[Rfam]
RNA sequence: GGGCGGUGAGGAGGAAAGUGAGGAAGUCAUGCACCACUCUGAUGAAAUCUGUGCUGAUAAACCGUCAAUUACCCAUUUACAUCUGAGCCC
Numbered sequence: 001g002g003g004c005g006g007u008g009a010g011g012a013g014g015a016a017a018g019u020g021a022g023g024a025a026g027u028c029a030u031g032c033a034c035c036a037c038u039c040u041g042a043u044g045a046a047a048u049c050u051g052u053g054c055u056g057a058u059a060a061a062c063c064g065u066c067a068a069u070u071a072c073c074c075a076u077u078u079a080c081a082u083c084u085g086a087g088c089c090c
Stems, first nucleotide, its partner, number of pairs: 001090004
RNA: Small nucleolar RNA Z221/R21b